[Rfam]
RNA sequence: CCUUAGUUUGACUGUAAGACACUCUGGAUAAGAGUGUCUGCUAAAUGACCAAAA
Numbered sequence: 001c002c003u004u005a006g007u008u009u010g011a012c013u014g015u016a017a018g019a020c021a022c023u024c025u026g027g028a029u030a031a032g033a034g035u036g037u038c039u040g041c042u043a044a045a046u047g048a049c050c051a052a053a054a
Base pairs, nucleotide, nucleotide: 013043014041015040016039020036021035022034023033024032025031
RNA: UnaL2 LINE 3' element
Organism: Oncorhynchus mykiss